[Rfam]
Background:
The record is a 96-nucleotide RNA sequence from Nicotiana sylvestris, which matches "MIR6152 microRNA precursor family" in Rfam. Gene Ontology terms of the family: miRNA-mediated post-transcriptional gene silencing and RISC complex.
RNA sequence: UAGAUAGAUUAUUGUAUUCAACUGUAUUCACAGCGUGAAACAGAGGGUUUCAUUGUUUUUAAAUGGAAAGUGAAUCAAUUAACAUAACAUACUCCU
Numbered sequence: 001u002a003g004a005u006a007g008a009u010u011a012u013u014g015u016a017u018u019c020a021a022c023u024g025u026a027u028u029c030a031c032a033g034c035g036u037g038a039a040a041c042a043g044a045g046g047g048u049u050u051c052a053u054u055g056u057u058u059u060u061a062a063a064u065g066g067a068a069a070g071u072g073a074a075u076c077a078a079u080u081a082a083c084a085u086a087a088c089a090u091a092c093u094c095c096u
Stems, first nucleotide, its partner, number of pairs: 003094002010089001012087004017082002020080002023077002026075006034065003037059007
Taxonomically the source falls in Nicotiana (Eukaryota, Streptophytina, Spermatophyta, asterids). The family's consensus secondary structure was predicted with RNAalifold.